A member of the RNA family "Bacterial large subunit ribosomal RNA" from Acaryochloris marina, 587 nucleotides of a longer RNA. Lineage of the source: Bacteria > Bacillati > Cyanophyceae > Acaryochloridaceae > Acaryochloris marina.
Nucleotides: 587
Stems, first nucleotide, its partner, number of pairs: 001583008010575003015569001022404004027400002029396005035201004042193007051154006058147009068137001078136005085119003094113008158181003162178001164176004204216004217239006240385001242342002248300006254280002257275006281290002305328004311322003330339003353379007361372002413454003417451001418448007428438002465540001466538004470532001471529005478503002481498006505519005546564004550559003
Number, partner (000 for none) and nucleotide at each position: 001583c002582c003581u004580g005579c006578a007577c008576c009000c010575g011574g012573a013000c014000a015569g016000a017000a018000a019000g020000a021000c022404c023403c024402u025401a026000u027400g028399a029396a030395g031394c032393u033392u034000u035201a036200c037199u038198a039000u040000a041000g042193c043192u044191u045190g046189g047188a048187a049000u050000u051154g052153g053152g054151u055150u056149c057000g058147g059146g060145c061144u062143u063142u064141g065140a066139u067000u068137g069000c070000g071000c072000a073000g074000g075000a076000u077000a078136g079135g080134u081133g082132g083000g084000a085119g086118a087117u088000g089000u090000u091000g092000a093000g094113a095112c096111a097110u098109u099108g100107c101106u102000c103000g104000u105000g106101g107100g108099c109098a110097g111096u112095g113094u114000g115000g116000a117087g118086u119085c120000a121000c122000u123000g124000g125000u126000g127000a128000g129000a130000u131000a132082c133081c134080a135079c136078u137068c138000u139066a140065u141064c142063a143062a144061g145060g146059c147058u148000a149056g150055a151054a152053u153052u154051c155000u156000a157000a158181c159180c160179u161000u162178u163000a164176c165175c166174c167173g168000u169000u170000a171000u172000c173167c174166g175165g176164g177000a178162g179160a180159g181158g182000a183000a184000c185000a186000g187048u188047u189046u190045c191044a192043g193042g194000u195000g196000g197000g198038u199037a200036g201035u202000u203000u204216g205215a206214c207213u208000g209000g210000g211000g212000c213207g214206g215205u216204c217239g218238c219237c220236u221235c222234c223000u224000a225000a226000a227000a228000g229000g230000u231000a232000a233000c234222g235221g236220a237219g238218g239217c240385g241000c242342g243341c244000a245000a246000a247000g248300g249299u250298u251297c252296c253295c254280u255279c256000a257275g258274g259273c260272u261271g262270g263000u264000c265000g266000g267000a268000a269000a270262u271261c272260a273259g274258c275257c276000g277000c278000a279255g280254a281290g282289u283000g284000u285000a286000a287000a288000g289282g290281u291000a292000u293000a294000a295253g296252g297251g298250a299249g300248c301000u302000u303000g304000a305328c306327u307326g308325c309000g310000a311322g312321a313320c314000c315000u316000a317000c318000a319000a320313g321312u322311c323000g324000a325308g326307c327306a328305g329000g330339g331338a332337c333000g334000a335000a336000a337332g338331u339330c340000g341243g342242c343000c344000u345000u346000a347000g348000u349000g350000a351000u352000c353379c354378g355377a356376c357375g358374g359373c360000a361372c362371a363000g364000c365000g366000u367000g368000g369000a370000a371362u372361g373359g374358c375357c376356g377355u378354c379353g380000c381000u382000c383000a384000a385240c386000g387000g388000a389000u390000a391000a392033a393032a394031g395030u396029u397000a398000c399028u400027c401025u402024a403023g404022g405000g406000a407000u408000a409000a410000c411000a412000g413454g414453c415452u416000g417451a418448u419447c420446u421445c422444c423443c424442c425000c426000a427000a428438g429437a430000g431000u432000u433000c434000a435000c436000a437429u438428c439000g440000a441000c442424g443423g444422g445421g446420a447419g448418g449000u450000u451417u452415g453414g454413c455000a456000c457000c458000u459000c460000g461000a462000u463000g464000u465540c466538g467537g468536c469535u470532c471529a472528u473527c474526g475525c476000a477000a478503c479502c480000u481498g482497g483496g484495g485494c486493g487000g488000u489000a490000g491000u492000a493486c494485g495484u496483c497482c498481c499000a500000a501000g502479g503478g504000u505519u506518g507517g508516g509515c510000u511000g512000u513000u514000c515509g516508c517507c518506c519505a520000u521000u522000a523000a524000a525475g526474c527473g528472g529471u530000a531000c532470g533000u534000g535469a536468g537467c538466u539000g540465g541000g542000u543000u544000c545000a546564g547563a548562a549561c550559g551558u552557c553000g554000u555000g556000a557552g558551a559550c560000a561549g562548u563547u564546c565000g566000g567000u568000c569015c570000a571000u572000a573012u574011c575010c576008g577007g578006u579005g580004u581003a582002g583001g584000c585000g586000c587000a